[Rfam]
RNA sequence: UGUUGGUUCUCCCGCAACGCUACUCUGUUUACCAGGUCAGGUCCGGAAGGAAGCAGCCAAGGCAGAUGACGCGUGUGCCGGGAUGUAGCUGGCAGGGC
Numbered sequence: 001u002g003u004u005g006g007u008u009c010u011c012c013c014g015c016a017a018c019g020c021u022a023c024u025c026u027g028u029u030u031a032c033c034a035g036g037u038c039a040g041g042u043c044c045g046g047a048a049g050g051a052a053g054c055a056g057c058c059a060a061g062g063c064a065g066a067u068g069a070c071g072c073g074u075g076u077g078c079c080g081g082g083a084u085g086u087a088g089c090u091g092g093c094a095g096g097g098c
Stems, first nucleotide, its partner, number of pairs: 004091005010083005015075001017074004024066006035058003042051003
Rfam assigns this 98-nucleotide RNA sequence from Salmonella enterica to the family "Bacterial small signal recognition particle RNA". Its family is annotated with SRP-dependent cotranslational protein targeting to membrane, signal sequence recognition and signal recognition particle, plasma membrane targeting in the Gene Ontology. Rfam's curators write: The signal recognition particle (SRP) is a universally conserved ribonucleoprotein involved in the co-translational targeting of proteins to membranes. Clan: SRP clan. The family's RNA type in Rfam is non-coding RNA gene. The family's consensus secondary structure is taken from published work. The sequence is in the family's curated seed alignment.